[Rfam]
RNA sequence: CCGCGCAGCCGGGGAGAUAGCGGUGCCCUGUACCUGCAAUCCGCUACAGCAGGGGUGAUGACCAGCCUCGAAAUGUUUUCUGCGGGGCUGCCCUUAGUAAGUUACGUUGAGACCCAGGUCUUACGCGACAGGAAUCUAUGAACCGUGUCAGGUUGGGAACAAAGCAGCACUAAGUAGAACCUCUCUGUGCGCCGUGAGGCAGCCUGAGUUGAGUAGGCUGCUAAGGUAACGCUCGUUGGGACUUUGCAAAGCUGGUCGCGCGG
Numbered sequence: 001c002c003g004c005g006c007a008g009c010c011g012g013g014g015a016g017a018u019a020g021c022g023g024u025g026c027c028c029u030g031u032a033c034c035u036g037c038a039a040u041c042c043g044c045u046a047c048a049g050c051a052g053g054g055g056u057g058a059u060g061a062c063c064a065g066c067c068u069c070g071a072a073a074u075g076u077u078u079u080c081u082g083c084g085g086g087g088c089u090g091c092c093c094u095u096a097g098u099a100a101g102u103u104a105c106g107u108u109g110a111g112a113c114c115c116a117g118g119u120c121u122u123a124c125g126c127g128a129c130a131g132g133a134a135u136c137u138a139u140g141a142a143c144c145g146u147g148u149c150a151g152g153u154u155g156g157g158a159a160c161a162a163a164g165c166a167g168c169a170c171u172a173a174g175u176a177g178a179a180c181c182u183c184u185c186u187g188u189g190c191g192c193c194g195u196g197a198g199g200c201a202g203c204c205u206g207a208g209u210u211g212a213g214u215a216g217g218c219u220g221c222u223a224a225g226g227u228a229a230c231g232c233u234c235g236u237u238g239g240g241a242c243u244u245u246g247c248a249a250a251g252c253u254g255g256u257c258g259c260g261c262g263g
Stems, first nucleotide, its partner, number of pairs: 001263006008056003011029004016024001018022001033053005062255005068249001070247001072245002075242001077241004082236005089228002093225006101218002103215003111210003115206005120198006126189002129187003132183002135178005145170004153162003
This 263-nucleotide RNA from Lachnospiraceae bacterium NE2001 belongs to the Rfam family "Bacterial large signal recognition particle RNA". Taxonomically the source falls in Lachnospiraceae (Bacteria, Bacillati, Bacillota, Clostridia). By type it is a non-coding RNA gene. Its Rfam clan is "SRP clan". Rfam links the family to the GO terms signal recognition particle, plasma membrane targeting and SRP-dependent cotranslational protein targeting to membrane, signal sequence recognition.